[Rfam]
RNA: Bacterial RNase P class A
RNA sequence: GCGGAGGGCCGGAUGGCCGCGGGGCAGCAAUGUUCCGAGGAAAGUCCGGACUCCCUGAGGCAACGGUGCCGGGUAACGCCCGGGCAGGGCAACCUGACGGAAAGCGCCACAGAAAACAGACCGCCCGUCGCACCCGAGGUGCGCCAAAGGACAUACCGGAGGUGCGCCAAAGGAGCUUGCGACGGGUCAGGGUGAAACGGUGCGGUAAGAGCGCACCGGGGGCGUGGCAACGCGCGCCGCAUGGCAAGCCCCACCGGGAGCAAUGCCGAAUAGGGACCUCGGGCGGGGUUGAUCGGGCAACCGAUAUCACCGCAGGGCCGCUUCAGCCCAGAGGUCCGGGUUGGCAGCUAAAGGCGUCUGGCAACAGGCGCCGUAGAGGAAUGGUCAUCGAACCUCGGGUUUCGGCCCGGGGGGAACAGAAUCCGGCUUACAGGCCCUCCGCGCAA
Numbered sequence: 001g002c003g004g005a006g007g008g009c010c011g012g013a014u015g016g017c018c019g020c021g022g023g024g025c026a027g028c029a030a031u032g033u034u035c036c037g038a039g040g041a042a043a044g045u046c047c048g049g050a051c052u053c054c055c056u057g058a059g060g061c062a063a064c065g066g067u068g069c070c071g072g073g074u075a076a077c078g079c080c081c082g083g084g085c086a087g088g089g090c091a092a093c094c095u096g097a098c099g100g101a102a103a104g105c106g107c108c109a110c111a112g113a114a115a116a117c118a119g120a121c122c123g124c125c126c127g128u129c130g131c132a133c134c135c136g137a138g139g140u141g142c143g144c145c146a147a148a149g150g151a152c153a154u155a156c157c158g159g160a161g162g163u164g165c166g167c168c169a170a171a172g173g174a175g176c177u178u179g180c181g182a183c184g185g186g187u188c189a190g191g192g193u194g195a196a197a198c199g200g201u202g203c204g205g206u207a208a209g210a211g212c213g214c215a216c217c218g219g220g221g222g223c224g225u226g227g228c229a230a231c232g233c234g235c236g237c238c239g240c241a242u243g244g245c246a247a248g249c250c251c252c253a254c255c256g257g258g259a260g261c262a263a264u265g266c267c268g269a270a271u272a273g274g275g276a277c278c279u280c281g282g283g284c285g286g287g288g289u290u291g292a293u294c295g296g297g298c299a300a301c302c303g304a305u306a307u308c309a310c311c312g313c314a315g316g317g318c319c320g321c322u323u324c325a326g327c328c329c330a331g332a333g334g335u336c337c338g339g340g341u342u343g344g345c346a347g348c349u350a351a352a353g354g355c356g357u358c359u360g361g362c363a364a365c366a367g368g369c370g371c372c373g374u375a376g377a378g379g380a381a382u383g384g385u386c387a388u389c390g391a392a393c394c395u396c397g398g399g400u401u402u403c404g405g406c407c408c409g410g411g412g413g414g415a416a417c418a419g420a421a422u423c424c425g426g427c428u429u430a431c432a433g434g435c436c437c438u439c440c441g442c443g444c445a446a
Base pairs, nucleotide, nucleotide: 001442002441003440004439005438006437007436008435009434010433011431012389013388014387015386016385017384018383020037021036022035023034024033025032026031042429043428044427046426047425048424049423050422051260052259053258054257059324060323064256065255066254067253068252069083070082071081072080073079084098085096086095087094088093099251100250104249105248106245107244108243121191122190123187124186125185126184127183128182129181130180131179199217200216201215202214203213204212218240219238220237222235223234224233225232226231264346265345266344267343274337275336276335277334278333279332315329316328317327318326353372354371355370356369357368358367359366360365